[Rfam]
RNA sequence: AACCUGUGAUGAAGAGAUUCUGCCAAAUGAGUGUGCUGAUUAUAAACCUUUACCGUUCCAUUUUAUAUCUGAGGUU
Numbered sequence: 001a002a003c004c005u006g007u008g009a010u011g012a013a014g015a016g017a018u019u020c021u022g023c024c025a026a027a028u029g030a031g032u033g034u035g036c037u038g039a040u041u042a043u044a045a046a047c048c049u050u051u052a053c054c055g056u057u058c059c060a061u062u063u064u065a066u067a068u069c070u071g072a073g074g075u076u
Stems, first nucleotide, its partner, number of pairs: 001076004